A member of the RNA family "Archaeal large subunit ribosomal RNA" from Candidatus Parvarchaeum acidiphilum, 237 nucleotides of a longer RNA. The family's consensus secondary structure is taken from published work.
RNA sequence: GAGUUUAUGAGCAUGGCAAGGCUAACGAAAGGAAGCCGGAGCGAAAGCGAGUGCCGCGAGGCACUGGUAGGAAACUGCCAUAAGUCAUGUUUGUAAGACCCGAAGCCGCGCGAUCUAUACCUGGGCAGGCCGAAGUAGGGAUUACUCUCUAUGGAGGGCCGACCUGGUCGGUAACUACAUCGUCAGUUGACCUGGGUAUAGGGGCGAAAAACCAAUCGUGCGCGGCGAUAGCUGGUU
Numbered sequence: 001g002a003g004u005u006u007a008u009g010a011g012c013a014u015g016g017c018a019a020g021g022c023u024a025a026c027g028a029a030a031g032g033a034a035g036c037c038g039g040a041g042c043g044a045a046a047g048c049g050a051g052u053g054c055c056g057c058g059a060g061g062c063a064c065u066g067g068u069a070g071g072a073a074a075c076u077g078c079c080a081u082a083a084g085u086c087a088u089g090u091u092u093g094u095a096a097g098a099c100c101c102g103a104a105g106c107c108g109c110g111c112g113a114u115c116u117a118u119a120c121c122u123g124g125g126c127a128g129g130c131c132g133a134a135g136u137a138g139g140g141a142u143u144a145c146u147c148u149c150u151a152u153g154g155a156g157g158g159c160c161g162a163c164c165u166g167g168u169c170g171g172u173a174a175c176u177a178c179a180u181c182g183u184c185a186g187u188u189g190a191c192c193u194g195g196g197u198a199u200a201g202g203g204g205c206g207a208a209a210a211a212c213c214a215a216u217c218g219u220g221c222g223c224g225g226c227g228a229u230a231g232c233u234g235g236u237u
Stems, first nucleotide, its partner, number of pairs: 005096013020037004026031001041048002052063004066079004099235002102232001106225006115201011126189001128160004135152007164186004169182002203213002
A reference for the family is Yusupov et al. (2001), "Crystal structure of the ribosome at 5.5 A resolution", Science.